L2-Alphaproteobacteria ribosomal protein leader: a 63-nucleotide RNA. Pairs were carried over by alignment from the consensus structure, which is taken from published work. The family's RNA type in Rfam is cis-regulatory leader.
RNA sequence: GCGGACCUACGGGGCCGUAUAACCAAUACGAUCAUUUGAUCGUUUAAAAACGGAAGACAGAAA
Dot-bracket structure: ((((.(((...)))))))..........(((((....))))).....................